[Rfam]
RNA sequence: GGCCCAUCCUGCGAUGGCAGAGCCCGGCCGCCGGUCGAAGGGAUGGCCUGCUUCACCGACGAACGGGAGGCGCACGGGGGGCGAGCCGAUCCGCAGGGGGCUGCCGAUUGCCCCA
Numbered sequence: 001g002g003c004c005c006a007u008c009c010u011g012c013g014a015u016g017g018c019a020g021a022g023c024c025c026g027g028c029c030g031c032c033g034g035u036c037g038a039a040g041g042g043a044u045g046g047c048c049u050g051c052u053u054c055a056c057c058g059a060c061g062a063a064c065g066g067g068a069g070g071c072g073c074a075c076g077g078g079g080g081g082c083g084a085g086c087c088g089a090u091c092c093g094c095a096g097g098g099g100g101c102u103g104c105c106g107a108u109u110g111c112c113c114c115a
Stems, first nucleotide, its partner, number of pairs: 016032003020028001077114004087110002090107002093104004
Shown here is a 115-nucleotide RNA sequence from Pseudooceanicola albus, a member of the family "ALIL pseudoknot". It scores 54 bits against the family's covariance model. Rfam classes the family as a cis-regulatory element. The literature on the family includes a 2008 paper in J Biol Chem by Mazauric et al., "Apical loop-internal loop RNA pseudoknots: a new type of stimulator of -1 translational frameshifting in bacteria". Rfam 15.1 lists 2,146 matches to the family in 1,098 species.